[Rfam]
RNA sequence: CCCAGGGCUGCGCUGCGCUUCGCCCUGGGCUAUACUCCUACGCCCCUUCGGGGCU
Numbered sequence: 001c002c003c004a005g006g007g008c009u010g011c012g013c014u015g016c017g018c019u020u021c022g023c024c025c026u027g028g029g030c031u032a033u034a035c036u037c038c039u040a041c042g043c044c045c046c047u048u049c050g051g052g053g054c055u
Stems, first nucleotide, its partner, number of pairs: 001029008042054005

The record is a 55-nucleotide RNA sequence from Planctomycetaceae bacterium SCGC AG-212-F19, which matches "Acido-Lenti-1 RNA" in Rfam. The family's RNA type in Rfam is small RNA. Lineage of the source: Bacteria > Pseudomonadati > Planctomycetota > Planctomycetales > Planctomycetaceae.